[Rfam]
Overview: The family of this 64-nucleotide RNA sequence from Myotis davidii is "mir-9242 microRNA precursor family". It scores 62 bits against the family's covariance model. Rfam 15.1 lists 940 matches to the family in 18 species.
RNA sequence: GGCCUCCCUCUGUGGGGCUAUUGAUUGCAGAGCCCUGCAAUCAAUUGCCCCAAAGAAGGAGGCC
Numbered sequence: 001g002g003c004c005u006c007c008c009u010c011u012g013u014g015g016g017g018c019u020a021u022u023g024a025u026u027g028c029a030g031a032g033c034c035c036u037g038c039a040a041u042c043a044a045u046u047g048c049c050c051c052a053a054a055g056a057a058g059g060a061g062g063c064c
Stems, first nucleotide, its partner, number of pairs: 001064007009056003013052006020045011